This 146-nucleotide RNA from Jeotgalibacillus soli belongs to the Rfam family "Ribosomal protein L10 leader". The family's consensus secondary structure was predicted with CMfinder. NCBI's taxonomy places the organism under Bacteria, Bacillati, Bacillota, Caryophanaceae, Jeotgalibacillus.
RNA sequence: AAUAUAUAACCAUUUGUACCGUAGACAGUAGGUGUCCUUAGGACUUAAUAUCCUGCCGAGGUCAUUGCGAUAAAAAGAUUCUAUCUUUUUCUUGACGUGAUACGCCUCUAUGUCUACUUUGGAUAUAGAGGCUUUUUAGUGAUCGA
Numbered sequence: 001a002a003u004a005u006a007u008a009a010c011c012a013u014u015u016g017u018a019c020c021g022u023a024g025a026c027a028g029u030a031g032g033u034g035u036c037c038u039u040a041g042g043a044c045u046u047a048a049u050a051u052c053c054u055g056c057c058g059a060g061g062u063c064a065u066u067g068c069g070a071u072a073a074a075a076a077g078a079u080u081c082u083a084u085c086u087u088u089u090u091c092u093u094g095a096c097g098u099g100a101u102a103c104g105c106c107u108c109u110a111u112g113u114c115u116a117c118u119u120u121g122g123a124u125a126u127a128g129a130g131g132c133u134u135u136u137u138a139g140u141g142a143u144c145g146a
Stems, first nucleotide, its partner, number of pairs: 028056005034044003105131010